Shown here is a 153-nucleotide RNA sequence from Ameiurus melas, a member of the family "Small nucleolar RNA U109". The organism belongs to Ameiurus, within Eukaryota. A reference for the family is Richard et al. (2003), "A common sequence motif determines the Cajal body-specific localization of box H/ACA scaRNAs", EMBO J. A search with the family's covariance model found it, with a score of 59 bits. By type it is an H/ACA-box small nucleolar RNA.
RNA sequence: UUGCAUGCAGUGGCUUUUCUGCCACAGUACAUCCACGUCUCCCCAUUGAUGAGAUUGUGGCUGUAGAAAUAGCAUGCUAAAGUAACGUGGAGUUAACAGGGCCACCAGUCUCUCAAGCACAGACUGCGUCGGUAGUAUAAAACUCCUACAUUA
Numbered sequence: 001u002u003g004c005a006u007g008c009a010g011u012g013g014c015u016u017u018u019c020u021g022c023c024a025c026a027g028u029a030c031a032u033c034c035a036c037g038u039c040u041c042c043c044c045a046u047u048g049a050u051g052a053g054a055u056u057g058u059g060g061c062u063g064u065a066g067a068a069a070u071a072g073c074a075u076g077c078u079a080a081a082g083u084a085a086c087g088u089g090g091a092g093u094u095a096a097c098a099g100g101g102c103c104a105c106c107a108g109u110c111u112c113u114c115a116a117g118c119a120c121a122g123a124c125u126g127c128g129u130c131g132g133u134a135g136u137a138u139a140a141a142a143c144u145c146c147u148a149c150a151u152u153a
Stems, first nucleotide, its partner, number of pairs: 003077006016066002019063001021061008089146004101133002105128001106126006